[Rfam]
RNA sequence: ACCCGUUGCGCGCAGCCGCGAACGGCGUGCGCGACAAGCAGACACACACCGUGCCACGGGAAGAACGAGGCACUUCAGGGCGUU
Numbered sequence: 001a002c003c004c005g006u007u008g009c010g011c012g013c014a015g016c017c018g019c020g021a022a023c024g025g026c027g028u029g030c031g032c033g034a035c036a037a038g039c040a041g042a043c044a045c046a047c048a049c050c051g052u053g054c055c056a057c058g059g060g061a062a063g064a065a066c067g068a069g070g071c072a073c074u075u076c077a078g079g080g081c082g083u084u
Stems, first nucleotide, its partner, number of pairs: 005035009015026004051073005057067002